RNA: Small nucleolar RNA R38
Organism: Corchorus olitorius
RNA sequence: UGGUGUGAAUGAUGAGAAGAUUCAAUAUUGUUUCAGUUAUCCCUGUCUGAUCACUGUUGCUGACAAAUUGAUAUCUGACACAACA
Number, nucleotide and partner (000 for none) at each position: 001u085002g084003g000004u082005g081006u080007g079008a000009a000010u000011g000012a000013u000014g000015a000016g000017a000018a000019g000020a000021u000022u000023c000024a000025a000026u000027a000028u000029u000030g000031u000032u000033u000034c000035a000036g000037u000038u000039a000040u000041c000042c000043c000044u000045g000046u000047c000048u000049g000050a000051u000052c000053a000054c000055u000056g000057u000058u000059g000060c000061u000062g000063a000064c000065a000066a000067a000068u000069u000070g000071a000072u000073a000074u000075c000076u000077g000078a000079c007080a006081c005082a004083a000084c002085a001